The record is a 75-nucleotide sequence from Aquarana catesbeiana, which matches "Small nucleolar RNA snR60/Z15/Z230/Z193/J17" in Rfam. Gene Ontology terms of the family: RNA processing and nucleolus. By type it is a C/D-box small nucleolar RNA. The source organism's lineage runs through Eukaryota, Craniata, Euteleostomi, Tetrapoda and Aquarana. Clan: SNORD77 clan. On this family, see Lowe and Eddy, Science 1999: "A computational screen for methylation guide snoRNAs in yeast".
RNA sequence: UAUUUGUAUAUGAUGAAACCAUAGUUCAGCUGAUUGCUAUGAAGAACAAUCUUUCGCUCCUAUCUGAUACAUUUU
Numbered sequence: 001u002a003u004u005u006g007u008a009u010a011u012g013a014u015g016a017a018a019c020c021a022u023a024g025u026u027c028a029g030c031u032g033a034u035u036g037c038u039a040u041g042a043a044g045a046a047c048a049a050u051c052u053u054u055c056g057c058u059c060c061u062a063u064c065u066g067a068u069a070c071a072u073u074u075u
Stems, first nucleotide, its partner, number of pairs: 005071004